[Rfam]
RNA sequence: AGCUCAUCCAGAGGGGCAGAGGGACACGGCCCGGCGAAGCCCCGGCAACCACACCGCACCAGCUCCACGCGGUUCCGGUGCCAAUUCCGUCCCGCGGACGAAGGUCGCCGCGCGGGGAAGAUGAGGA
Numbered sequence: 001a002g003c004u005c006a007u008c009c010a011g012a013g014g015g016g017c018a019g020a021g022g023g024a025c026a027c028g029g030c031c032c033g034g035c036g037a038a039g040c041c042c043c044g045g046c047a048a049c050c051a052c053a054c055c056g057c058a059c060c061a062g063c064u065c066c067a068c069g070c071g072g073u074u075c076c077g078g079u080g081c082c083a084a085u086u087c088c089g090u091c092c093c094g095c096g097g098a099c100g101a102a103g104g105u106c107g108c109c110g111c112g113c114g115g116g117g118a119a120g121a122u123g124a125g126g127a
Base pairs, nucleotide, nucleotide: 003125004124005123006122007121008120013043014042015041016040017039021032022031023030026090027089028088029087044082045081046080047079049078050077053073054072055071056070057069086119091116092115093114094113095112096111
Dot-bracket structure: ..((((((....(((((...(((..[[[[)))......)))))((((.((..(((((...........)))))...))))))...(]]]]((((((..............))))))..)))))))..